[Rfam]
The record is an 82-nucleotide RNA from Allolucifera butyrica, which matches "ZMP/ZTP riboswitch aptamer (pfl RNA motif)" in Rfam. Pairs were carried over by alignment from the consensus structure, which is taken from published work. The family has 185 seed sequences and 3,295 matches in Rfam 15.1. It scores 60 bits against the family's covariance model.
RNA sequence: UACGGAAUACGGAACUGGCGGAAAAGUGGAGAUUACCACGUGGACUGUAUUCUAGGAAAAGCCGACCGCCUGGGCAAGACCG
Number, nucleotide and partner (000 for none) at each position: 001u000002a000003c000004g053005g052006a051007a050008u049009a048010c047011g046012g045013a000014a000015c042016u000017g070018g069019c068020g067021g066022a000023a000024a000025a000026g039027u038028g037029g036030a000031g000032a000033u000034u000035a000036c029037c028038a027039c026040g000041u000042g015043g000044a000045c012046u011047g010048u009049a008050u007051u006052c005053u004054a000055g000056g000057a000058a000059a000060a000061g075062c074063c073064g000065a000066c021067c020068g019069c018070c017071u000072g000073g063074g062075c061076a000077a000078g000079a000080c000081c000082g000